[Rfam]
RNA: Mammalian CPEB3 ribozyme
RNA sequence: UCACAAGUUCAAGGCCAUAGCAGAAGCACUCAUGGCACAGCCCAUCAGAUUCCAGUGAAGCUGCGACUUCUGCU
Numbered sequence: 001u002c003a004c005a006a007g008u009u010c011a012a013g014g015c016c017a018u019a020g021c022a023g024a025a026g027c028a029c030u031c032a033u034g035g036c037a038c039a040g041c042c043c044a045u046c047a048g049a050u051u052c053c054a055g056u057g058a059a060g061c062u063g064c065g066a067c068u069u070c071u072g073c074u
Stems, first nucleotide, its partner, number of pairs: 013042003019074007026038001046063003050059003